[Rfam]
RNA sequence: UGACGUCUUCAGGGCGGGGUGCGACUCCCCACCGGCGGUAGGCGCGGCACGCCGCGCGAGCCCGCGAGCGCUUCCGCAUCGCGGAAGGUCAGCAGAUCCGGUCCGAUACCGGAGCCGACGGUUACAGUCCGGAUGAAGGAAGACAGCG
Numbered sequence: 001u002g003a004c005g006u007c008u009u010c011a012g013g014g015c016g017g018g019g020u021g022c023g024a025c026u027c028c029c030c031a032c033c034g035g036c037g038g039u040a041g042g043c044g045c046g047g048c049a050c051g052c053c054g055c056g057c058g059a060g061c062c063c064g065c066g067a068g069c070g071c072u073u074c075c076g077c078a079u080c081g082c083g084g085a086a087g088g089u090c091a092g093c094a095g096a097u098c099c100g101g102u103c104c105g106a107u108a109c110c111g112g113a114g115c116c117g118a119c120g121g122u123u124a125c126a127g128u129c130c131g132g133a134u135g136a137a138g139g140a141a142g143a144c145a146g147c148g
Stems, first nucleotide, its partner, number of pairs: 005144006017029003031128002033117002035065004060115002068093002097113005119131003
RNA: FMN riboswitch aptamer (RFN element)